[Rfam]
The record is a 62-nucleotide sequence from Thermomonospora cellulosilytica, which matches "Actino-pnp RNA" in Rfam.
RNA sequence: GCCGGUCCUCGGUAGUGGCCCCCGGAUGACACCCGAUCCGUGGGCUUCGAUCGAAGACCGGC
Number, nucleotide and partner (000 for none) at each position: 001g062002c061003c060004g059005g058006u057007c056008c000009u054010c053011g052012g051013u050014a000015g000016u000017g046018g045019c044020c043021c042022c000023c040024g039025g038026a037027u036028g000029a000030c000031a000032c000033c000034c000035g000036a027037u026038c025039c024040g023041u000042g021043g020044g019045c018046u017047u000048c000049g000050a013051u012052c011053g010054a009055a000056g007057a006058c005059c004060g003061g002062c001
The organism belongs to Thermomonospora, within Bacteria. The family's RNA type in Rfam is cis-regulatory element. The base pairs follow the family's consensus structure, which is taken from published work.